aspS RNA: an 82-nucleotide RNA sequence from Olsenella sp. An188. By type it is a cis-regulatory element. The base pairs follow the family's consensus structure, which is taken from published work. The match comes from Rfam's covariance-model search (50 bits).
RNA sequence: GCGACGCUGCGCUGUCUACGCCACGCCGCCGUCCCAAGUCCACCGCCGCCCGAUCCGACACGGGGCGGCCGCGAAGAAAGGC
Numbered sequence: 001g002c003g004a005c006g007c008u009g010c011g012c013u014g015u016c017u018a019c020g021c022c023a024c025g026c027c028g029c030c031g032u033c034c035c036a037a038g039u040c041c042a043c044c045g046c047c048g049c050c051c052g053a054u055c056c057g058a059c060a061c062g063g064g065g066c067g068g069c070c071g072c073g074a075a076g077a078a079a080g081g082c
Base pairs, nucleotide, nucleotide: 001029002028003027005025006024009021010020011019032074033073035071045069046068047067048066049065050064051063